[Rfam]
RNA sequence: CAUUGUGGUAGUCUUCCUGUGGCGGAUCAGUUACAGUAUCAGAUCAGCCUUGAACUACCACAUAGAGUAUUGAGGAGGAGGACUGUCUUGAAAACUGUUCUAGGACUUUCAGUUUUCUGUUAGGCUUCUAACUCCCACAAGA
Dot-bracket structure: ....(((((((.........(((.((((.(.........).)))).))).....)))))))............((((.(((....))).............((.....................)).....)))).......
Rfam assigns this 142-nucleotide RNA from Crocodylus porosus to the family "Small nucleolar RNA SNORA12". It is annotated as an H/ACA-box small nucleolar RNA. Rfam describes the family as follows. U108 belongs to the H/ACA family of snoRNAs. The family has 23 seed sequences and 571 matches in Rfam 15.1. The base pairs follow the family's consensus structure, which was predicted with RNAalifold. Gene Ontology terms of the family: RNA processing and nucleolus.